[Rfam]
RNA sequence: GGGUCAAUGAUGAACAUUUUAUAUUGCCUGGAGGAGCGGUGAUGACUGAAAGCUCACGCAUGAUGCUGAGGCCC
Numbered sequence: 001g002g003g004u005c006a007a008u009g010a011u012g013a014a015c016a017u018u019u020u021a022u023a024u025u026g027c028c029u030g031g032a033g034g035a036g037c038g039g040u041g042a043u044g045a046c047u048g049a050a051a052g053c054u055c056a057c058g059c060a061u062g063a064u065g066c067u068g069a070g071g072c073c074c
Stems, first nucleotide, its partner, number of pairs: 001074004005068002008065002

The record is a 74-nucleotide RNA from Carlito syrichta, which matches "Small nucleolar RNA SNORD115" in Rfam. The family's RNA type in Rfam is C/D-box small nucleolar RNA. The family's consensus secondary structure was predicted with PFOLD. The literature on the family includes a 2000 paper in Proc Natl Acad Sci U S A by Cavaille et al., "Identification of brain-specific and imprinted small nucleolar RNA genes exhibiting an unusual genomic organization". Lineage of the source: Eukaryota > Eumetazoa > Bilateria > Mammalia > Carlito.